Gammaprotebacteria rimP leader: a 101-nucleotide RNA sequence from Atlantibacter hermannii. Rfam classes the family as a cis-regulatory leader.

[Rfam]
RNA sequence: GUCGCAUUAGCGACUUACAGGGUUCAGUUAUUAAAAGCCCCGAUUUAUCGGGGUUUUUUGUUAUCUGAGUUAAUAAUAACUGGGCUUUAUGCCCUUUUUUU
Numbered sequence: 001g002u003c004g005c006a007u008u009a010g011c012g013a014c015u016u017a018c019a020g021g022g023u024u025c026a027g028u029u030a031u032u033a034a035a036a037g038c039c040c041c042g043a044u045u046u047a048u049c050g051g052g053g054u055u056u057u058u059u060g061u062u063a064u065c066u067g068a069g070u071u072a073a074u075a076a077u078a079a080c081u082g083g084g085c086u087u088u089a090u091g092c093c094c095u096u097u098u099u100u101u
Stems, first nucleotide, its partner, number of pairs: 034057009082094004
Pairs were carried over by alignment from the consensus structure, which is taken from published work. The organism belongs to Atlantibacter hermannii, within Bacteria.